Rfam assigns this 70-nucleotide RNA from Equus caballus to the family "Small nucleolar RNA U2-30".
[Rfam]
RNA sequence: GAGCAAUGAUGGAAAGAUUUUACUACUGAUCUUUAUAUCUGUGAAGGUUUCUACACUUAAUCUAAGCUCA
Numbered sequence: 001g002a003g004c005a006a007u008g009a010u011g012g013a014a015a016g017a018u019u020u021u022a023c024u025a026c027u028g029a030u031c032u033u034u035a036u037a038u039c040u041g042u043g044a045a046g047g048u049u050u051c052u053a054c055a056c057u058u059a060a061u062c063u064a065a066g067c068u069c070a
Stems, first nucleotide, its partner, number of pairs: 001069004013034007

The family's RNA type in Rfam is C/D-box small nucleolar RNA.